The family of this 69-nucleotide RNA from Phocoena sinus is "mir-302 microRNA precursor family". Pairs were carried over by alignment from the consensus structure, which was predicted with RNAalifold. A search with the family's covariance model found it, with a score of 55 bits. The family is grouped with related families in Rfam's "mir-290 clan". A reference for the family is Suh et al. (2004), "Human embryonic stem cells express a unique set of microRNAs", Dev Biol. Rfam 15.1 lists 2,090 matches to the family in 516 species.
RNA sequence: CCAUCACUAAAACAUGGAAGCACUUACUUUUUUAGUUUCAAAGCAAGUACAUCCACGUUUAAGUGGUGG
Numbered sequence: 001c002c003a004u005c006a007c008u009a010a011a012a013c014a015u016g017g018a019a020g021c022a023c024u025u026a027c028u029u030u031u032u033u034a035g036u037u038u039c040a041a042a043g044c045a046a047g048u049a050c051a052u053c054c055a056c057g058u059u060u061a062a063g064u065g066g067u068g069g
Stems, first nucleotide, its partner, number of pairs: 001069003005065004010060004015055004020050001022048004027043002